[Rfam]
RNA sequence: GGGGACCUUCGGGGCCCUAUAAUUCGGGUCUGGCACAUCAGACCCUCUAGCUGACGGAAGACAGAAA
Numbered sequence: 001g002g003g004g005a006c007c008u009u010c011g012g013g014g015c016c017c018u019a020u021a022a023u024u025c026g027g028g029u030c031u032g033g034c035a036c037a038u039c040a041g042a043c044c045c046u047c048u049a050g051c052u053g054a055c056g057g058a059a060g061a062c063a064g065a066a067a
Base pairs, nucleotide, nucleotide: 001018002017003016004015006014007013008012026045027044028043029042030041031040032039033038